[Rfam]
RNA: Listeria sRNA sbrA
Organism: Peribacillus deserti
Nucleotides: 067
Stems, first nucleotide, its partner, number of pairs: 004034001007033003037060010
Number, partner (000 for none) and nucleotide at each position: 001000g002000u003000a004034c005000a006000u007033c008032u009031a010000g011000a012000a013000c014000c015000a016000u017000a018000c019000c020000c021000c022000u023000a024000a025000a026000c027000u028000c029000c030000c031009u032008a033007g034004g035000u036000u037060g038059g039058a040057u041056a042055g043054c044053g045052c046051a047000g048000g049000a050000g051046u052045g053044c054043g055042c056041u057040a058039u059038c060037c061000a062000u063000u064000u065000u066000c067000u